Background
Shown here is a 46-nucleotide RNA sequence from Neomonachus schauinslandi, a member of the family "Histone 3' UTR stem-loop". A search with the family's covariance model found it, with a score of 37 bits. Pairs were carried over by alignment from the consensus structure, which is taken from published work. The mRNAs of metazoan histone genes lack a poly-A tail. 3' end processing occurs at a site between a highly conserved stem-loop (modelled by this family) and a purine rich region around 20 nts downstream (the histone downstream element, or HDE). A reference for the family is Williams and Marzluff (1995), "The sequence of the stem and flanking sequences at the 3' end of histone mRNA are critical determinants for the binding of the stem-loop binding protein", Nucleic Acids Res. Rfam classes the family as a cis-regulatory element.
[Rfam]
RNA sequence: CCAAAGGCUCUUUUCAGAGCCACCCAAUUAGUUCCAACAAAAGUGG
Number, nucleotide and partner (000 for none) at each position: 001c000002c000003a000004a000005a000006g021007g020008c019009u018010c017011u016012u000013u000014u000015c000016a011017g010018a009019g008020c007021c006022a000023c000024c000025c000026a000027a000028u000029u000030a000031g000032u000033u000034c000035c000036a000037a000038c000039a000040a000041a000042a000043g000044u000045g000046g000